The family of this 95-nucleotide RNA sequence from Streptomyces sp. DvalAA-14 is "ZMP/ZTP riboswitch aptamer (pfl RNA motif)". The base pairs follow the family's consensus structure, which is taken from published work. The literature on the family includes a 2015 paper in Nat Struct Mol Biol by Jones and Ferre-D'Amare, "Recognition of the bacterial alarmone ZMP through long-distance association of two RNA subdomains". NCBI's taxonomy places the organism under Bacteria, Actinomycetota, Actinomycetes, Kitasatosporales, Streptomyces. It scores 50 bits against the family's covariance model.

[Rfam]
RNA sequence: GCCGCGAGCCGUGACUGGCGCGCUGGGAUGGGGUCAACCAUCGGGGAGCGGCUCGUUCGUACCGCUACCGAGUGCCGUGCGCCUGGGCCGUCCCG
Numbered sequence: 001g002c003c004g005c006g007a008g009c010c011g012u013g014a015c016u017g018g019c020g021c022g023c024u025g026g027g028a029u030g031g032g033g034u035c036a037a038c039c040a041u042c043g044g045g046g047a048g049c050g051g052c053u054c055g056u057u058c059g060u061a062c063c064g065c066u067a068c069c070g071a072g073u074g075c076c077g078u079g080c081g082c083c084u085g086g087g088c089c090g091u092c093c094c095g
Base pairs, nucleotide, nucleotide: 004056005055006054007053008052009051010050011049012048015045016044017083018082019081020080021079028041029040030039031038074088075087076086